[Rfam]
RNA sequence: UGAUUAAAAAAACUCUGAAGCUUAUAUUAUCUUAGUGGUGAUAAAAUCAUAUGAAGUAUAAGCCGUGAUGGUUACUGUUAACACAUCACCGGGUAUAAAACAGAAAUGUUUAUACCUCCUGAUUGGAAAAGUGUUUUUAUUAUAUGCAA
Dot-bracket structure: ..((.(....(((.((...((((((((..((...((((........))))..)).)))))))).(((((...............))))).((((((.(((((....)))))))))))((.....))...)).)))....).))......